[Rfam]
RNA sequence: UCGAGCUGGUGGGCGGGCCACGGGGAUCUCCUGAGGAAGCUCCUCCCUCCAAAUGGGGGGCGCGGCGCCGCGAGGCGCGACGGGAGACCGUCGGCAACGGAAAAGAAACGGAACCCCCCGGCGAGCGAUGUCGGUGAUGGGGGCGAACCCCGGAGGAGGCGCCGGGGAGGAUGAAACGGCCGACCCGCGCGGAGCAAGGCCAAACAGGGCCGAUGAGUCCCCACGAGGCCCGGGUGGGCCUCUGAGCCUAAUCCCGCCAGAACAGAAGGAGGGCUACGGCCAGCACGA
Number, nucleotide and partner (000 for none) at each position: 001u288002c287003g286004a000005g284006c283007u282008g281009g280010u278011g277012g258013g257014c256015g255016g254017g253018c000019c000020a000021c033022g032023g031024g030025g029026a000027u000028c000029u025030c024031c023032u022033g021034a000035g000036g000037a000038a275039g274040c273041u000042c272043c271044u270045c269046c268047c194048u193049c192050c191051a000052a000053a000054u000055g220056g000057g000058g000059g000060g190061c189062g188063c187064g186065g078066c077067g076068c075069c074070g000071c000072g000073a000074g069075g068076c067077g066078c065079g092080a091081c090082g089083g088084g000085a000086g000087a000088c083089c082090g081091u080092c079093g185094g184095c000096a000097a000098c182099g181100g180101a000102a000103a000104a000105g000106a000107a000108a000109c000110g000111g000112a000113a000114c170115c169116c000117c166118c165119c164120g163121g162122c161123g160124a000125g000126c000127g000128a000129u000130g000131u000132c000133g000134g000135u000136g000137a000138u000139g151140g150141g000142g000143g000144c000145g000146a000147a000148c000149c000150c140151c139152g000153g000154a000155g000156g000157a000158g000159g000160c123161g122162c121163c120164g119165g118166g117167g000168a000169g115170g114171a000172u000173g000174a000175a000176a000177c000178g000179g000180c100181c099182g098183a000184c094185c093186c064187g063188c062189g061190c060191g050192g049193a048194g047195c000196a000197a000198g240199g239200c238201c237202a000203a000204a000205c000206a000207g231208g230209g229210c228211c227212g000213a000214u000215g000216a000217g000218u000219c000220c055221c000222c000223a000224c000225g000226a000227g211228g210229c209230c208231c207232g000233g000234g000235u000236g000237g201238g200239c199240c198241u000242c000243u000244g000245a000246g000247c000248c000249u000250a000251a000252u000253c017254c016255c015256g014257c013258c012259a000260g000261a000262a000263c000264a000265g000266a000267a000268g046269g045270a044271g043272g042273g040274c039275u038276a000277c011278g010279g000280c009281c008282a007283g006284c005285a000286c003287g002288a001
The family of this 288-nucleotide RNA from Conexivisphaera calida is "Archaeal RNase P".
Pairs were carried over by alignment from the consensus structure, which is taken from published work.
The match comes from Rfam's covariance-model search (175 bits).
The organism belongs to Conexivisphaera, within Archaea.
Rfam's curators write: Ribonuclease P (RNase P) is a ubiquitous endoribonuclease, found in archaea, bacteria and eukarya as well as chloroplasts and mitochondria. Its best characterised activity is the generation of mature 5'-ends of tRNAs by cleaving the 5'-leader elements of precursor-tRNAs.
A reference for the family is Frank and Pace (1998), "Ribonuclease P: unity and diversity in a tRNA processing ribozyme", Annu Rev Biochem.
Gene Ontology terms of the family: tRNA processing, ribonuclease P activity and multimeric ribonuclease P complex.